[Rfam]
Nucleotides: 268
Stems, first nucleotide, its partner, number of pairs: 001268004035248001037246003042227003046223004060213004064126007084111005092102001134191005140185001149176005155170001156168003
Number, partner (000 for none) and nucleotide at each position: 001268g002267g003266u004265c005000a006000g007000u008000g009000a010000u011000g012000a013000a014000a015000u016000g017000u018000a019000a020000a021000a022000g023000g024000u025000c026000u027000g028000a029000u030000u031000g032000c033000c034000c035248a036000a037246g038245u039244c040000c041000c042227u043226u044225c045000c046223c047222a048221u049220u050000g051000u052000c053000c054000c055000c056000u057000c058000u059000g060213c061212u062211c063210c064126c065125a066124g067123c068122a069121g070120c071000c072000c073000u074000u075000g076000c077000u078000g079000u080000a081000c082000u083000c084111c085110c086109a087108g088107c089000a090000u091000g092102c093000u094000c095000u096000a097000g098000u099000u100000g101000u102092g103000c104000a105000u106000c107088g108087u109086u110085g111084g112000u113000c114000a115000c116000a117000g118000g119000g120070g121069c122068u123067g124066c125065u126064g127000a128000c129000a130000g131000a132000g133000a134191g135190g136189a137188u138187g139000a140185c141000c142000u143000c144000g145000c146000a147000u148000c149176c150175u151174g152173u153172g154000u155170c156168u157167c158166u159000g160000a161000g162000a163000c164000c165000a166158a167157g168156g169000c170155g171000u172153c173152a174151c175150a176149g177000u178000g179000a180000u181000g182000u183000u184000g185140g186000a187138c188137a189136u190135c191134c192000a193000a194000c195000a196000u197000g198000a199000c200000c201000a202000a203000u204000c205000a206000c207000c208000a209000a210063g211062g212061a213060g214000u215000a216000u217000c218000a219000g220049g221048g222047u223046g224000u225044g226043g227042g228000u229000u230000u231000g232000g233000g234000a235000u236000a237000g238000g239000u240000a241000g242000a243000u244039g245038a246037u247000c248035u249000c250000a251000a252000g253000u254000u255000u256000u257000g258000c259000a260000g261000c262000u263000g264000a265004g266003a267002c268001c
Small Cajal body specific RNA 6: a 268-nucleotide RNA from Oncorhynchus mykiss. Gene Ontology terms of the family: RNA processing and nucleolus. The literature on the family includes a 2002 paper in EMBO J by Darzacq et al., "Cajal body-specific small nuclear RNAs: a novel class of 2'-O-methylation and pseudouridylation guide RNAs". It is annotated as a small Cajal body RNA. Rfam describes the family as follows. U88 is small Cajal body specific RNA (scaRNA). scaRNAs are a novel class of small nuclear RNAs which localise to the Cajal bodies. U88 is found associated with both fibrillarin and Gar1p and co-localises with coilin in Cajal bodies. A search with the family's covariance model found it, with a score of 134 bits. The family has 17 seed sequences and 1,309 matches in Rfam 15.1. NCBI's taxonomy places the organism under Eukaryota, Chordata, Craniata, Gnathostomata, Oncorhynchus.